[Rfam]
RNA: mir-181 microRNA precursor family
Organism: Synaphobranchus kaupii
RNA sequence: UGGCUGCGAUAAACAUUCAUUGCUGUCGGUGGGUUUCUGGUAUGGACAGCUCACUGACCGAUGAAUGCACACUGCGGUACA
Numbered sequence: 001u002g003g004c005u006g007c008g009a010u011a012a013a014c015a016u017u018c019a020u021u022g023c024u025g026u027c028g029g030u031g032g033g034u035u036u037c038u039g040g041u042a043u044g045g046a047c048a049g050c051u052c053a054c055u056g057a058c059c060g061a062u063g064a065a066u067g068c069a070c071a072c073u074g075c076g077g078u079a080c081a
Base pairs, nucleotide, nucleotide: 001081002080004077005076006075007074008073014067015066016065017064018063019062020061021060022059025058026057027056028055029054030053031052033050034049035048